[Rfam]
RNA: Small nucleolar RNA J33
Organism: Apium graveolens
RNA sequence: CUGUGAGAGGAAUGAUGUAUUACUCUCGGGCUCUCAAGAUGCUGGCUUUUCUUGACACUGCAUCUGAGAUGGACAUUAGGG
Number, nucleotide and partner (000 for none) at each position: 001c081002u080003g000004u078005g077006a076007g000008a000009g000010g000011a000012a000013u000014g000015a000016u000017g000018u000019a000020u000021u000022a000023c000024u000025c000026u000027c000028g000029g000030g000031c000032u000033c000034u000035c000036a000037a000038g000039a000040u000041g000042c000043u000044g000045g000046c000047u000048u000049u000050u000051c000052u000053u000054g000055a000056c000057a000058c000059u000060g000061c000062a000063u000064c000065u000066g000067a000068g000069a000070u000071g000072g000073a000074c000075a000076u006077u005078a004079g000080g002081g001